[Rfam]
RNA: MIR4387 microRNA precursor family
Nucleotides: 109
Base pairs, nucleotide, nucleotide: 003104004103006101007100008099011096012095013094014093015092016091017090019088020087021086024083025082026081027080028079029078030077031076032075033074035072036071037070038069039068040067041066042065043064046061047060048059049058050057
Number, partner (000 for none) and nucleotide at each position: 001000a002000a003104g004103u005000a006101u007100u008099a009000c010000a011096u012095c013094a014093u015092c016091a017090c018000u019088c020087c021086u022000a023000u024083u025082c026081a027080u028079u029078g030077g031076c032075a033074c034000a035072u036071c037070a038069u039068u040067g041066c042065c043064a044000c045000a046061u047060c048059a049058u050057u051000g052000g053000a054000g055000g056000u057050g058049a059048u060047g061046a062000c063000a064043u065042g066041g067040c068039a069038a070037u071036g072035a073000g074033g075032u076031g077030u078029u079028a080027g081026u082025g083024a084000u085000a086021a087020g088019g089000u090017g091016u092015g093014a094013u095012g096011a097000c098000a099008u100007g101006a102000c103004a104003c105000u106000c107000u108000a109000u